[Rfam]
This 127-nucleotide sequence from Equus caballus belongs to the Rfam family "Small nucleolar RNA SNORA25". The organism belongs to Equus, within Eukaryota. Rfam links the family to the GO terms nucleolus and RNA processing.
RNA sequence: AGUUCAUUUCAAAGAGGGCUGUGGGCUGUGAAACCAGGAGCUCUUAACUCUGUGACGAAAGAUUGAAGUUCUUCGUUGGAUGCCAUAAUCACUCAACAGUGCUAAGUUUUUCUGAGGAGAUACAAAA
Dot-bracket structure: ...((((......(((((((...((........))...)))))))......))))..............(((((...(((.....((..((((....)))).)).....)))...))))).......
Overview:
By type it is an H/ACA-box small nucleolar RNA. ACA25 is a member of the H/ACA class of snoRNA that guide the sites of modification of uridines to pseudouridines. A search with the family's covariance model found it, with a score of 100 bits.